A member of the RNA family "Eukaryotic small subunit ribosomal RNA" from Dientamoeba fragilis, 541 nucleotides of a longer RNA.
[Rfam]
RNA sequence: UACUUGGUUGAUCCUGCCAAGGAAGCACACUAUGGUCAUAGAUUAAGCCAUGCAAGUGUAAGUUCAGGUAACUAAACUGCGAAUAGCUCAUUAACACACUCAUAAUCUACUUGGAACCAAUUUUUUAAAAAUUUUAAAUGGAUAGCAGGAGUAAUUCUCGUGCUAAUACAUGAAAUUUUAAUAAUCUUAAAUUAAAUCAGAUUAUUUUUAAUACCUUUUAAUAGGUAAUCCAAUCGAAUGAGUGACCUAUCAGGCCAGUACUUAGGGUCUUUACCUAAGUAAGCUAUCACGGGUAACGGGCGGUUACCGUCGUACUGCCGGAGAAGGCGCCUGAGAGAUAGCGACUAUAUCCACGGGUAGCAGCAGGCGCGAAACUUACCCACUCGAGACUAUCGGAGGUGGUAAUGACCAGUUAUAAUUAAGGAAUUUUCCUUAUUAUAUAGGAAUAUACUUUUCCAGUAUAUUGUAACCUAGCAGAGGGCCAGUCUGGUGCCAGCAGCUGCGGUAAUUCCAGCUCUGCAAGUUUGCUCCCAUAUUGUUG
Numbered sequence: 001u002a003c004u005u006g007g008u009u010g011a012u013c014c015u016g017c018c019a020a021g022g023a024a025g026c027a028c029a030c031u032a033u034g035g036u037c038a039u040a041g042a043u044u045a046a047g048c049c050a051u052g053c054a055a056g057u058g059u060a061a062g063u064u065c066a067g068g069u070a071a072c073u074a075a076a077c078u079g080c081g082a083a084u085a086g087c088u089c090a091u092u093a094a095c096a097c098a099c100u101c102a103u104a105a106u107c108u109a110c111u112u113g114g115a116a117c118c119a120a121u122u123u124u125u126u127a128a129a130a131a132u133u134u135u136a137a138a139u140g141g142a143u144a145g146c147a148g149g150a151g152u153a154a155u156u157c158u159c160g161u162g163c164u165a166a167u168a169c170a171u172g173a174a175a176u177u178u179u180a181a182u183a184a185u186c187u188u189a190a191a192u193u194a195a196a197u198c199a200g201a202u203u204a205u206u207u208u209u210a211a212u213a214c215c216u217u218u219u220a221a222u223a224g225g226u227a228a229u230c231c232a233a234u235c236g237a238a239u240g241a242g243u244g245a246c247c248u249a250u251c252a253g254g255c256c257a258g259u260a261c262u263u264a265g266g267g268u269c270u271u272u273a274c275c276u277a278a279g280u281a282a283g284c285u286a287u288c289a290c291g292g293g294u295a296a297c298g299g300g301c302g303g304u305u306a307c308c309g310u311c312g313u314a315c316u317g318c319c320g321g322a323g324a325a326g327g328c329g330c331c332u333g334a335g336a337g338a339u340a341g342c343g344a345c346u347a348u349a350u351c352c353a354c355g356g357g358u359a360g361c362a363g364c365a366g367g368c369g370c371g372a373a374a375c376u377u378a379c380c381c382a383c384u385c386g387a388g389a390c391u392a393u394c395g396g397a398g399g400u401g402g403u404a405a406u407g408a409c410c411a412g413u414u415a416u417a418a419u420u421a422a423g424g425a426a427u428u429u430u431c432c433u434u435a436u437u438a439u440a441u442a443g444g445a446a447u448a449u450a451c452u453u454u455u456c457c458a459g460u461a462u463a464u465u466g467u468a469a470c471c472u473a474g475c476a477g478a479g480g481g482c483c484a485g486u487c488u489g490g491u492g493c494c495a496g497c498a499g500c501u502g503c504g505g506u507a508a509u510u511c512c513a514g515c516u517c518u519g520c521a522a523g524u525u526u527g528c529u530c531c532c533a534u535a536u537u538g539u540u541g
Stems, first nucleotide, its partner, number of pairs: 004020005021531003025528003029524003033411006039404002041370001047368003051365003056080002061078003068072001087323003097244003102239002106237002112232004138171003145163003149159003182204006214225003246293003254284002259281008297320003300316001301312004325346002328343003348359004376401001378400003384396004416438003420435006445465002449461003474520006487514004496503002
Rfam 15.1 lists 75,755 matches to the family in 2,556 species. Taxonomically the source falls in Dientamoeba (Eukaryota, Metamonada, Tritrichomonadida, Dientamoebidae). The base pairs follow the family's consensus structure, which is taken from published work. It is one of the family's seed sequences.